[Rfam]
RNA: Archaeal large subunit ribosomal RNA, nucleotides 668 to 919
Organism: Archaeoglobus sulfaticallidus
RNA sequence: GAGUGUAGCUGAGUGGCGAGGCUAAGGGUUAUGCCCGAAGCCGGAGGGAAACCGAAUGCCCGCAGAUUUCGAGGGGCAGGGUGUGCUCGCCCUCAGUCACUCGGCUACGACCCGAAACCGGUCGAUCUAGGCGUGGGCAGGGUGAAGCGAGGCGAAAGCCUCGUGGAGGCCCGAAGGGGUGCUGAUGUGCAAAUCGUUCCUCUGACCCACGUCUAGGGGUGAAAGUCCAAUCGAGGCCGGAGAUAGCUGGUU
Numbered sequence: 001g002a003g004u005g006u007a008g009c010u011g012a013g014u015g016g017c018g019a020g021g022c023u024a025a026g027g028g029u030u031a032u033g034c035c036c037g038a039a040g041c042c043g044g045a046g047g048g049a050a051a052c053c054g055a056a057u058g059c060c061c062g063c064a065g066a067u068u069u070c071g072a073g074g075g076g077c078a079g080g081g082u083g084u085g086c087u088c089g090c091c092c093u094c095a096g097u098c099a100c101u102c103g104g105c106u107a108c109g110a111c112c113c114g115a116a117a118c119c120g121g122u123c124g125a126u127c128u129a130g131g132c133g134u135g136g137g138c139a140g141g142g143u144g145a146a147g148c149g150a151g152g153c154g155a156a157a158g159c160c161u162c163g164u165g166g167a168g169g170c171c172c173g174a175a176g177g178g179g180u181g182c183u184g185a186u187g188u189g190c191a192a193a194u195c196g197u198u199c200c201u202c203u204g205a206c207c208c209a210c211g212u213c214u215a216g217g218g219g220u221g222a223a224a225g226u227c228c229a230a231u232c233g234a235g236g237c238c239g240g241a242g243a244u245a246g247c248u249g250g251u252u
Stems, first nucleotide, its partner, number of pairs: 005108013020042004026036004046053002058077004065070001080091004111250002114247001118240006127216011138204001140172004147164007176201004181197002184195002218228002